RNA sequence: GCCUGGAAUAGGAAGAUAGAGAGGGCCUAAGAACAUUAGGAAUGGGAACAUGGAGGAAAACCUUACCUAUUUGUUUCCUCUAGCUACAGAGGUAGAAGCUUGGUUUGGUAUUUCCCGAUGCCUCCCAUUCCUUCCGUUCUUAAGCACUCCUUCCUUUUCCUUAUGGCU
Numbered sequence: 001g002c003c004u005g006g007a008a009u010a011g012g013a014a015g016a017u018a019g020a021g022a023g024g025g026c027c028u029a030a031g032a033a034c035a036u037u038a039g040g041a042a043u044g045g046g047a048a049c050a051u052g053g054a055g056g057a058a059a060a061c062c063u064u065a066c067c068u069a070u071u072u073g074u075u076u077c078c079u080c081u082a083g084c085u086a087c088a089g090a091g092g093u094a095g096a097a098g099c100u101u102g103g104u105u106u107g108g109u110a111u112u113u114c115c116c117g118a119u120g121c122c123u124c125c126c127a128u129u130c131c132u133u134c135c136g137u138u139c140u141u142a143a144g145c146a147c148u149c150c151u152u153c154c155u156u157u158u159c160c161u162u163a164u165g166g167c168u
Base pairs, nucleotide, nucleotide: 010158011157012156013155015153016152021149022148023147026144028142029141030140031139032138033137034136038132039131040130041129042128043127044126045125046124047123049120050119051118053116055115056114057113058112059111
Shown here is a 168-nucleotide sequence from Miscanthus lutarioriparius, a member of the family "MIR2118 microRNA precursor family".
Rfam 15.1 lists 2,377 matches to the family in 45 species.
The base pairs follow the family's consensus structure, which was predicted with RNAalifold.
Rfam links the family to the GO terms miRNA-mediated post-transcriptional gene silencing and RISC complex.
The match comes from Rfam's covariance-model search (130 bits).